Description:
This 124-nucleotide RNA from Brucella gallinifaecis belongs to the Rfam family "Alphaproteobacterial ar14". The family has 118 seed sequences and 784 matches in Rfam 15.1. The match comes from Rfam's covariance-model search (88 bits). The literature on the family includes a 2012 paper in RNA Biol by del Val et al., "A survey of sRNA families in alpha-proteobacteria". Its family is annotated with biological process involved in symbiotic interaction in the Gene Ontology. It is annotated as a small RNA. NCBI's taxonomy places the organism under Bacteria, Pseudomonadati, Alphaproteobacteria, Hyphomicrobiales, Brucella.

[Rfam]
RNA sequence: CGGCCUGUCGCAAAGCACUCCUCCUCCCAAGCUUUGCGGCGCCAGGGCCGGGACUCUCCUCCUCCCAAUUCCGGCCUGACAAUAAUGGCAUCCAUCGCACCUCCUCCCGCGAUGGAUGCCAUUU
Numbered sequence: 001c002g003g004c005c006u007g008u009c010g011c012a013a014a015g016c017a018c019u020c021c022u023c024c025u026c027c028c029a030a031g032c033u034u035u036g037c038g039g040c041g042c043c044a045g046g047g048c049c050g051g052g053a054c055u056c057u058c059c060u061c062c063u064c065c066c067a068a069u070u071c072c073g074g075c076c077u078g079a080c081a082a083u084a085a086u087g088g089c090a091u092c093c094a095u096c097g098c099a100c101c102u103c104c105u106c107c108c109g110c111g112a113u114g115g116a117u118g119c120c121a122u123u124u
Base pairs, nucleotide, nucleotide: 007040008039009038010037011036012035013034014033015032016031045077046076047075048074049073050072051071052070053069088119089118090117091116092115093114094113095112096111097110098109